The family of this 75-nucleotide RNA sequence from Haemonchus placei is "mir-5928 microRNA precursor family". The match comes from Rfam's covariance-model search (61 bits).
[Rfam]
RNA sequence: GGCACAAACUUGAAGAAGAGUAGAUUAGAAGGAUCACCUGACCCUACUAAACUACUUCACUUUGAGUUUUUGCCU
Numbered sequence: 001g002g003c004a005c006a007a008a009c010u011u012g013a014a015g016a017a018g019a020g021u022a023g024a025u026u027a028g029a030a031g032g033a034u035c036a037c038c039u040g041a042c043c044c045u046a047c048u049a050a051a052c053u054a055c056u057u058c059a060c061u062u063u064g065a066g067u068u069u070u071u072g073c074c075u
Base pairs, nucleotide, nucleotide: 001074002073003072004071006069007068008067009066011064012063013062014061015060018057019056020055021054022053023052025050026049027048028047030045032043034041035040

Taxonomically the source falls in Haemonchus (Eukaryota, Opisthokonta, Chromadorea, Trichostrongylidae).